[Rfam]
RNA sequence: CUUCCUGUUUUAGUACCACCCAUCUGCUUCCUCACAAGGUGUGUGGCUAUGCUAACAGGAUAGAGGAACUGUCUGUCAAGAUCUGAAGGGGUGGAUGGCCAUACCCCUCCACCUCUAUAUGAAUUGGCAGUACAUUUAUAU
Numbered sequence: 001c002u003u004c005c006u007g008u009u010u011u012a013g014u015a016c017c018a019c020c021c022a023u024c025u026g027c028u029u030c031c032u033c034a035c036a037a038g039g040u041g042u043g044u045g046g047c048u049a050u051g052c053u054a055a056c057a058g059g060a061u062a063g064a065g066g067a068a069c070u071g072u073c074u075g076u077c078a079a080g081a082u083c084u085g086a087a088g089g090g091g092u093g094g095a096u097g098g099c100c101a102u103a104c105c106c107c108u109c110c111a112c113c114u115c116u117a118u119a120u121g122a123a124u125u126g127g128c129a130g131u132a133c134a135u136u137u138a139u140a141u
Stems, first nucleotide, its partner, number of pairs: 004059004016046004075128004093116003
Dot-bracket structure: ...((((........((((.......................)))).........))))...............((((..............(((..................)))........)))).............

Rfam assigns this 141-nucleotide RNA sequence from Labeo rohita to the family "Small nucleolar RNA SNORA29". The family's RNA type in Rfam is H/ACA-box small nucleolar RNA. ACA29 is a member of the H/ACA class of snoRNA that guide the sites of modification of uridines to pseudouridines. The organism belongs to Labeo, within Eukaryota.